Small nucleolar RNA snR32: a 194-nucleotide RNA sequence from Colletotrichum tanaceti.
Rfam links the family to the GO terms nucleolus and RNA processing.
RNA sequence: AAUGUCUUUCUUCCGUGAUGAACCUGCCAGACCUACGCUCUGCGUAGAUCGGCAUCAACCGUUGUAUAUUUACACGACGUUGGUGUUUUCGCUCCUGGCAUAGAACAAACCUUUACAACCCGUUGCUGGGCACCUGGCUUUGAGCAGUCGUCUUGACUAUCAUGAGAAGUUGGGAAUCAGCUGAGGUUACAUAU
Numbered sequence: 001a002a003u004g005u006c007u008u009u010c011u012u013c014c015g016u017g018a019u020g021a022a023c024c025u026g027c028c029a030g031a032c033c034u035a036c037g038c039u040c041u042g043c044g045u046a047g048a049u050c051g052g053c054a055u056c057a058a059c060c061g062u063u064g065u066a067u068a069u070u071u072a073c074a075c076g077a078c079g080u081u082g083g084u085g086u087u088u089u090c091g092c093u094c095c096u097g098g099c100a101u102a103g104a105a106c107a108a109a110c111c112u113u114u115a116c117a118a119c120c121c122g123u124u125g126c127u128g129g130g131c132a133c134c135u136g137g138c139u140u141u142g143a144g145c146a147g148u149c150g151u152c153u154u155g156a157c158u159a160u161c162a163u164g165a166g167a168a169g170u171u172g173g174g175a176a177u178c179a180g181c182u183g184a185g186g187u188u189a190c191a192u193a194u
Stems, first nucleotide, its partner, number of pairs: 008105003012098002015095001017093001019091002026053003033047006054084005060076003118187002121183002133174002137170005144160001146158005
Notes: The match comes from Rfam's covariance-model search (47 bits).